[Rfam]
RNA: ArcZ RNA
Organism: Plautia stali symbiont
RNA sequence: AAGCUUUAACCAAUACCAUGCUGUUGCUUUUGUAUACGAUUUCUAAUAAUAGCAGCAGCGCCCAUUUCCCUGGUGUUGGCGCAGUAUUCGCGCACCCCGGUUUCGAC
Numbered sequence: 001a002a003g004c005u006u007u008a009a010c011c012a013a014u015a016c017c018a019u020g021c022u023g024u025u026g027c028u029u030u031u032g033u034a035u036a037c038g039a040u041u042u043c044u045a046a047u048a049a050u051a052g053c054a055g056c057a058g059c060g061c062c063c064a065u066u067u068c069c070c071u072g073g074u075g076u077u078g079g080c081g082c083a084g085u086a087u088u089c090g091c092g093c094a095c096c097c098c099g100g101u102u103u104c105g106a107c
Base pairs, nucleotide, nucleotide: 020059021058022057023056024055025054026053027052072096073095074094079093080092081091082090